A member of the RNA family "Small nucleolar RNA SNORA77" from Pluvianellus socialis, 133 nucleotides long. A reference for the family is Schattner et al. (2006), "A computational screen for mammalian pseudouridylation guide H/ACA RNAs", RNA.

RNA sequence: GCAGACUCACUCUGUACUGAACUGCAGUCUUCAGUUCAGGUACUUUUUCGGUCUGCGAGAGUAAUCGUUCACAGGAGCGAUAAUUGCUUUCUGUCUUGUAGAAGGCUGUUACAAUUGCUGUUGGGACAUUGCU
Numbered sequence: 001g002c003a004g005a006c007u008c009a010c011u012c013u014g015u016a017c018u019g020a021a022c023u024g025c026a027g028u029c030u031u032c033a034g035u036u037c038a039g040g041u042a043c044u045u046u047u048u049c050g051g052u053c054u055g056c057g058a059g060a061g062u063a064a065u066c067g068u069u070c071a072c073a074g075g076a077g078c079g080a081u082a083a084u085u086g087c088u089u090u091c092u093g094u095c096u097u098g099u100a101g102a103a104g105g106c107u108g109u110u111a112c113a114a115u116u117g118c119u120g121u122u123g124g125g126a127c128a129u130u131g132c133u
Stems, first nucleotide, its partner, number of pairs: 001056006014043004018038003022034003069124003072120003077115001081111002086106004
Taxonomically the source falls in Pluvianellus (Eukaryota, Opisthokonta, Eumetazoa, Dipnotetrapodomorpha). Gene Ontology terms of the family: RNA processing and nucleolus. The base pairs follow the family's consensus structure, which was predicted with RNAalifold.